[Rfam]
RNA sequence: UGUGCACCCAAACCCAAAGGUCCUAUCUUCCAGUGGUAUGACUUUGUCUGGUGUGCAGACAGAAACUGAUCCUUGUCGCCUUUCUCUGCUGCUGCAGUGCCUUUGAAAGUGAAUUCAAGGGUCAACAGAU
Numbered sequence: 001u002g003u004g005c006a007c008c009c010a011a012a013c014c015c016a017a018a019g020g021u022c023c024u025a026u027c028u029u030c031c032a033g034u035g036g037u038a039u040g041a042c043u044u045u046g047u048c049u050g051g052u053g054u055g056c057a058g059a060c061a062g063a064a065a066c067u068g069a070u071c072c073u074u075g076u077c078g079c080c081u082u083u084c085u086c087u088g089c090u091g092c093u094g095c096a097g098u099g100c101c102u103u104u105g106a107a108a109g110u111g112a113a114u115u116c117a118a119g120g121g122u123c124a125a126c127a128g129a130u
Base pairs, nucleotide, nucleotide: 003057004056005055006054007053009051019043020042021041022040024038025037026036027035068123069122070121071120072119073118074117080109081108082107083106084105088100089099